[Rfam]
RNA sequence: GCCACAUGAUGAUCUUGUGUCUGCAAUAGCUUUCGGGCUGUGAUGACCAUCGAUCUAUCACCCUUUACUGAUGGCU
Number, nucleotide and partner (000 for none) at each position: 001g075002c074003c073004a072005c000006a000007u000008g000009a000010u000011g000012a000013u000014c000015u000016u000017g000018u000019g000020u000021c000022u000023g000024c000025a000026a000027u000028a000029g038030c037031u036032u000033u000034c000035g000036g031037g030038c029039u000040g000041u000042g000043a000044u000045g000046a000047c000048c000049a000050u000051c000052g000053a000054u000055c000056u000057a000058u000059c000060a000061c000062c000063c000064u000065u000066u000067a000068c000069u000070g000071a000072u004073g003074g002075c001076u000